[Rfam]
RNA sequence: GUCGGAAUAGUUUAGUAGGGUAGAACAGCGGGAUCAUAAUUCGCACACGGGGGUUCAAAUCCCUCUUCCGAUA
Numbered sequence: 001g002u003c004g005g006a007a008u009a010g011u012u013u014a015g016u017a018g019g020g021u022a023g024a025a026c027a028g029c030g031g032g033a034u035c036a037u038a039a040u041u042c043g044c045a046c047a048c049g050g051g052g053g054u055u056c057a058a059a060u061c062c063c064u065c066u067u068c069c070g071a072u073a
Base pairs, nucleotide, nucleotide: 001072002071003070004069005068006067007066010026011025012024013023028044029043030042031041032040049065050064051063052062053061
RNA: tRNA